[Rfam]
RNA: Lysine riboswitch aptamer
Organism: Salsuginibacillus halophilus
RNA sequence: AAGUGAGGCAGAGGCGCGGGCCGCAUCAGUAUGCAGAUGAAUGAACGGAGAGAUUCUCAUUUGCAAAAAGGGCGUACCGCCGAAGCUUUGCUGACUCACUCCGGAGAAAGCGGGCUGGAAAAAUGGCUGAACAAGUCUUUUUCUGUCACAGCGUUACAGCUGUGGAGGGCUGCUGGUCAC
Numbered sequence: 001a002a003g004u005g006a007g008g009c010a011g012a013g014g015c016g017c018g019g020g021c022c023g024c025a026u027c028a029g030u031a032u033g034c035a036g037a038u039g040a041a042u043g044a045a046c047g048g049a050g051a052g053a054u055u056c057u058c059a060u061u062u063g064c065a066a067a068a069a070g071g072g073c074g075u076a077c078c079g080c081c082g083a084a085g086c087u088u089u090g091c092u093g094a095c096u097c098a099c100u101c102c103g104g105a106g107a108a109a110g111c112g113g114g115c116u117g118g119a120a121a122a123a124u125g126g127c128u129g130a131a132c133a134a135g136u137c138u139u140u141u142u143c144u145g146u147c148a149c150a151g152c153g154u155u156a157c158a159g160c161u162g163u164g165g166a167g168g169g170c171u172g173c174u175g176g177u178c179a180c
Base pairs, nucleotide, nucleotide: 007174008173009172010171011170016080017079018078019077022074023073024072032065033064034063035062036061037060038059039058084116085115086114087113088112090111091110092109095106096105097104117144118143119142120141121140122139123138125137126136127135128134146165147164148163149162150161151160152159